[Rfam]
RNA sequence: AACCAUGGCUGAGGUUGCGGAUUGGCAUGAGUACCCCCGACAAAAGCGGCAAGCAGUCCGCCGGGGGGAAGGGGCCGUCCGCCGAAGUGUCUGGCGCGCUGCUUUCGCGCCGGAUGCUGGGCCGGUACAGAAGAUGUGCCGGACUGUCAUCUUCCCGGAAGGAGGAUGGAGUGCACCCAUGGGA
Numbered sequence: 001a002a003c004c005a006u007g008g009c010u011g012a013g014g015u016u017g018c019g020g021a022u023u024g025g026c027a028u029g030a031g032u033a034c035c036c037c038c039g040a041c042a043a044a045a046g047c048g049g050c051a052a053g054c055a056g057u058c059c060g061c062c063g064g065g066g067g068g069a070a071g072g073g074g075c076c077g078u079c080c081g082c083c084g085a086a087g088u089g090u091c092u093g094g095c096g097c098g099c100u101g102c103u104u105u106c107g108c109g110c111c112g113g114a115u116g117c118u119g120g121g122c123c124g125g126u127a128c129a130g131a132a133g134a135u136g137u138g139c140c141g142g143a144c145u146g147u148c149a150u151c152u153u154c155c156c157g158g159a160a161g162g163a164g165g166a167u168g169g170a171g172u173g174c175a176c177c178c179a180u181g182g183g184a
Stems, first nucleotide, its partner, number of pairs: 006179003010175002017082006024076003034067006041060001086118012119145002122142008147169007
RNA: Lysine riboswitch aptamer